[Rfam]
RNA sequence: CGUACGAAUUGGCAAAAUUUCUGAAAAGUGAUGACGCAAAACUAGAGGGGCUAAGGUCAUGUGAUUAUGCCAGCCAGUUUCCGAA
Numbered sequence: 001c002g003u004a005c006g007a008a009u010u011g012g013c014a015a016a017a018u019u020u021c022u023g024a025a026a027a028g029u030g031a032u033g034a035c036g037c038a039a040a041a042c043u044a045g046a047g048g049g050g051c052u053a054a055g056g057u058c059a060u061g062u063g064a065u066u067a068u069g070c071c072a073g074c075c076a077g078u079u080u081c082c083g084a085a
Base pairs, nucleotide, nucleotide: 012037013036017032018031019030021028022027040079041078042077043076047075048074049071050070051069056065057064058063

Description: This 85-nucleotide RNA sequence from Bacillus sp. FJAT-49711 belongs to the Rfam family "c-di-GMP-I riboswitch aptamer". Lineage of the source: Bacteria > Bacillati > Bacillota > Bacilli > Bacillus.